RNA: Small nucleolar RNA U109
Organism: Pan troglodytes
RNA sequence: UGGCACGCUGGAUGGGUGUUCUGCUUCUCUUUAAAGAGCAUGGAUUUAUCCAUACCAUGUGACAUGAAUGAAAUGAGGAGUUUUCAGGGCUGCCAACCUCUUGGUUAAGGUUCUGUGUAGUAUAUUUCUCCUACAGUA
Numbered sequence: 001u002g003g004c005a006c007g008c009u010g011g012a013u014g015g016g017u018g019u020u021c022u023g024c025u026u027c028u029c030u031u032u033a034a035a036g037a038g039c040a041u042g043g044a045u046u047u048a049u050c051c052a053u054a055c056c057a058u059g060u061g062a063c064a065u066g067a068a069u070g071a072a073a074u075g076a077g078g079a080g081u082u083u084u085c086a087g088g089g090c091u092g093c094c095a096a097c098c099u100c101u102u103g104g105u106u107a108a109g110g111u112u113c114u115g116u117g118u119a120g121u122a123u124a125u126u127u128c129u130c131c132u133a134c135a136g137u138a
Stems, first nucleotide, its partner, number of pairs: 003060003007056001016041007077131004089118002093115001095112005